[Rfam]
RNA: Clostridiales-1 RNA
RNA sequence: UAUAAUAAGUCCAUCAAUAGUAAUGCAGUGUGGCUGCUUGCAGACAAAACAGCAUUACUAUUAGAUGGGCAAACAGACAUGAGCAUGUAAAUCGUUCAGUUUGCUGAACGAGUGGAAUGCGAAUGGCUGUUGCGAUUUUGGGAGUUCGAAGAACGGAGAAAUCGCAAUUAUUAUG
Number, nucleotide and partner (000 for none) at each position: 001u175002a174003u173004a172005a171006u170007a169008a000009g000010u069011c068012c067013a066014u000015c000016a062017a061018u060019a059020g058021u057022a056023a055024u054025g053026c052027a000028g050029u049030g000031u047032g045033g000034c043035u042036g041037c000038u000039u000040g000041c036042a035043g034044a000045c032046a000047a031048a000049a029050c028051a000052g026053c025054a024055u023056u022057a021058c020059u019060a018061u017062u016063a000064g000065a000066u013067g012068g011069g010070c000071a000072a000073a130074c129075a128076g127077a000078c125079a124080u123081g000082a000083g120084c119085a118086u117087g000088u000089a000090a113091a000092u111093c110094g109095u108096u107097c106098a105099g104100u000101u000102u000103g000104c099105u098106g097107a096108a095109c094110g093111a092112g000113u090114g000115g000116a000117a086118u085119g084120c083121g000122a000123a080124u079125g078126g000127c076128u075129g074130u073131u000132g000133c164134g163135a162136u161137u160138u159139u158140g000141g000142g000143a000144g154145u153146u152147c151148g000149a000150a000151g147152a146153a145154c144155g000156g000157a000158g139159a138160a137161a136162u135163c134164g133165c000166a000167a000168u000169u007170a006171u005172u004173a003174u002175g001